[Rfam]
Shown here is a 107-nucleotide RNA from Dickeya dadantii, a member of the family "Salmonella enterica Typhi npcRNA 44".
The family's RNA type in Rfam is non-coding RNA gene.

RNA sequence: CUUUAACAAUCCGGAACAAGCUGAAUAAUUUGAAACGACGGCAUGCGAAUGUGAAUUUGCGUGCUGGUCGAGUCUCUCAAAAUACUCAUAUCCCGAGACACUUUCGG
Numbered sequence: 001c002u003u004u005a006a007c008a009a010u011c012c013g014g015a016a017c018a019a020g021c022u023g024a025a026u027a028a029u030u031u032g033a034a035a036c037g038a039c040g041g042c043a044u045g046c047g048a049a050u051g052u053g054a055a056u057u058u059g060c061g062u063g064c065u066g067g068u069c070g071a072g073u074c075u076c077u078c079a080a081a082a083u084a085c086u087c088a089u090a091u092c093c094c095g096a097g098a099c100a101c102u103u104u105c106g107g
Stems, first nucleotide, its partner, number of pairs: 020089001023087002026084002029081002036070003041064010094106003098102001